[Rfam]
RNA sequence: UUACCCCUGUGUACUAUGGCUUUUUAUUCCUAUGUGAUGCUGAAAAAUGUUCGUGUAGGAAUUGAAGCCAUUAUACACAUGGUGAG
Numbered sequence: 001u002u003a004c005c006c007c008u009g010u011g012u013a014c015u016a017u018g019g020c021u022u023u024u025u026a027u028u029c030c031u032a033u034g035u036g037a038u039g040c041u042g043a044a045a046a047a048u049g050u051u052c053g054u055g056u057a058g059g060a061a062u063u064g065a066a067g068c069c070a071u072u073a074u075a076c077a078c079a080u081g082g083u084g085a086g
Stems, first nucleotide, its partner, number of pairs: 002085001005082002008079006016071008026062012
The record is an 86-nucleotide RNA from Anabas testudineus, which matches "mir-135 microRNA precursor family" in Rfam.
Taxonomically the source falls in Anabas (Eukaryota, Eurypterygia, Anabantiformes, Anabantoidei).
For this family Rfam cites "Identification of tissue-specific microRNAs from mouse" (Lagos-Quintana et al., Curr Biol, 2002).
The family's consensus secondary structure was predicted with PFOLD.
A search with the family's covariance model found it, with a score of 67 bits.